[Rfam]
The family of this 89-nucleotide sequence from Upupa epops is "Small nucleolar SNORD12/SNORD106".
RNA sequence: ACUGGUGUAAAUGAUGACUGCCUUUUUUCCCCAUCAGAGCGACAGUGUUGAUUUCUCACUGUUCAAGCCAGAUUGUCUGAUGCACCAGU
Dot-bracket structure: (((((((((.......................................................................)))))))))
Annotation
The base pairs follow the family's consensus structure, which was predicted with RNAalifold. It is annotated as a C/D-box small nucleolar RNA. The match comes from Rfam's covariance-model search (81 bits). The family is grouped with related families in Rfam's "SNORD12 clan". The literature on the family includes a 2001 paper in EMBO J by Huttenhofer et al., "RNomics: an experimental approach that identifies 201 candidates for novel, small, non-messenger RNAs in mouse". The source organism's lineage runs through Eukaryota, Chordata, Gnathostomata, Sarcopterygii and Upupa. Rfam 15.1 lists 2,264 matches to the family in 650 species.